[Rfam]
This 125-nucleotide RNA sequence belongs to the Rfam family "c-di-GMP-II-GAG riboswitch aptamer". The family's consensus secondary structure is taken from published work. Clan: c-di-GMP_II riboswitch clan. The sequence is in the family's curated seed alignment.
RNA sequence: GGGCGAGCGAGACACGAAGAUCCGGGCAGUCCUCACCGACGCAGCCGCGUAAGCGGACGCGCACGGAGACAAUUCGGCCGCCUAGACGGCCCGGGGAGUGAGUGGCGAGACCGGCUCGUUCGAGC
Numbered sequence: 001g002g003g004c005g006a007g008c009g010a011g012a013c014a015c016g017a018a019g020a021u022c023c024g025g026g027c028a029g030u031c032c033u034c035a036c037c038g039a040c041g042c043a044g045c046c047g048c049g050u051a052a053g054c055g056g057a058c059g060c061g062c063a064c065g066g067a068g069a070c071a072a073u074u075c076g077g078c079c080g081c082c083u084a085g086a087c088g089g090c091c092c093g094g095g096g097a098g099u100g101a102g103u104g105g106c107g108a109g110a111c112c113g114g115c116u117c118g119u120u121c122g123a124g125c
Base pairs, nucleotide, nucleotide: 001125004122005121006120007119008118009117010116011115013100014099015098022094023093024092025091026090027089029087076112077111079107080106081105082104